[Rfam]
RNA sequence: UCUGGCAGCCGCUCUCCCUGUCCUCCAGGAGCUCACCUGUGUCUGGCCGUGAGCUCCUCGGGGCAGAGCCCGCAUCUGCCUCCAUGCCAGC
Numbered sequence: 001u002c003u004g005g006c007a008g009c010c011g012c013u014c015u016c017c018c019u020g021u022c023c024u025c026c027a028g029g030a031g032c033u034c035a036c037c038u039g040u041g042u043c044u045g046g047c048c049g050u051g052a053g054c055u056c057c058u059c060g061g062g063g064c065a066g067a068g069c070c071c072g073c074a075u076c077u078g079c080c081u082c083c084a085u086g087c088c089a090g091c
Stems, first nucleotide, its partner, number of pairs: 005079004011073002016068001018066003022063001024061002027058003031054006037046003